The record is a 47-nucleotide sequence from Papaver somniferum, which matches "Plastid-rpl16 group II-D1 intron" in Rfam. The family has 538 seed sequences and 1,446 matches in Rfam 15.1. Pairs were carried over by alignment from the consensus structure, which was predicted with LocARNA. Plastid-rpl16 is a non-coding RNA (ncRNA) recognised in plastids. It was recognised in and intronic region of a ribosome rpl16 gene. A search with the family's covariance model found it, with a score of 55 bits. Its family is annotated with Group II intron splicing in the Gene Ontology. The source organism's lineage runs through Eukaryota, Viridiplantae, Spermatophyta, Papaveraceae and Papaver.
RNA sequence: GAGAGAUUUGAGUCAAUAAAGACCGAGUAGAUUGACUCAGAAACAAA
Dot-bracket structure: ......((.((((((((.............)))))))).))......